[Rfam]
RNA sequence: AAUUCUUUUCAUAAGAAUAAAGAGAAGCAAAGCUCUUCUAUACCCAAUGAGUAACCACCUGUCAAUACGCAAUGGGA
Number, nucleotide and partner (000 for none) at each position: 001a000002a000003u022004u021005c000006u019007u000008u017009u016010c015011a000012u000013a000014a000015g010016a009017a008018u000019a006020a000021a004022g003023a000024g000025a000026a000027g000028c000029a000030a000031a000032g000033c000034u000035c000036u000037u000038c000039u000040a000041u000042a000043c076044c075045c074046a000047a000048u000049g000050a000051g068052u067053a066054a000055c000056c000057a000058c000059c000060u000061g000062u000063c000064a000065a000066u053067a052068c051069g000070c000071a000072a000073u000074g045075g044076g043077a000
The record is a 77-nucleotide sequence from Musa troglodytarum, which matches "Plastid-clpP 5UTR RNA" in Rfam.
From the family's description: Plastid clpP is a non-coding RNA (ncRNA) recognised in plastids.
It scores 62 bits against the family's covariance model.
Rfam classes the family as a cis-regulatory element.
A reference for the family is Richter et al. (2023), "Retrograde signaling in plants: A critical review focusing on the GUN pathway and beyond", Plant Commun.